[Rfam]
Nucleotides: 093
Base pairs, nucleotide, nucleotide: 009086010085011084012083014081016079017078018077019076020075021074022073030064031063032062035060036059037058038057
Number, partner (000 for none) and nucleotide at each position: 001000a002000a003000g004000u005000c006000a007000a008000g009086u010085a011084c012083u013000u014081u015000g016079c017078g018077c019076g020075c021074u022073a023000a024000u025000c026000a027000g028000u029000g030064a031063c032062c033000g034000g035060g036059g037058c038057u039000g040000g041000g042000u043000u044000g045000a046000a047000a048000u049000c050000u051000a052000u053000g054000g055000a056000c057038a058037g059036u060035c061000a062032g063031g064030u065000a066000c067000c068000u069000g070000a071000a072000g073022u074021a075020g076019c077018g078017c079016g080000c081014g082000a083012a084011g085010u086009g087000c088000c089000u090000g091000c092000c093000g

The family of this 93-nucleotide sequence from Ceratitis capitata is "mir-275 microRNA precursor family".
The base pairs follow the family's consensus structure, which was predicted with RNAalifold.
Gene Ontology terms of the family: RISC complex and miRNA-mediated post-transcriptional gene silencing.